[Rfam]
Nucleotides: 141
Base pairs, nucleotide, nucleotide: 003048004047005046009044010043016039018037019036020035021034022033023032024031072082073081074080097141098140099139100138101137104133105132106131108129109128115123116122
Number, partner (000 for none) and nucleotide at each position: 001000c002000u003048c004047u005046u006000g007000c008000a009044a010043u011000u012000a013000g014000g015000u016039a017000u018037a019036u020035g021034a022033u023032g024031g025000a026000u027000a028000c029000g030000u031024c032023u033022a034021u035020c036019a037018u038000u039016u040000c041000a042000a043010a044009u045000c046005a047004a048003g049000g050000g051000a052000a053000u054000a055000a056000a057000g058000g059000a060000g061000u062000c063000u064000a065000a066000u067000u068000c069000c070000a071000u072082g073081c074080u075000g076000a077000a078000u079000a080074a081073g082072c083000a084000a085000a086000a087000a088000a089000a090000u091000a092000a093000a094000u095000a096000a097141a098140g099139a100138u101137g102000a103000a104133a105132a106131c107000c108129g109128a110000u111000a112000g113000u114000a115123a116122u117000g118000u119000u120000a121000a122116a123115u124000g125000a126000a127000c128109u129108c130000c131106g132105u133104u134000a135000a136000g137101c138100a139099u140098c141097u
Rfam assigns this 141-nucleotide sequence to the family "RT-14 RNA". The sequence is in the family's curated seed alignment. It is annotated as a small RNA.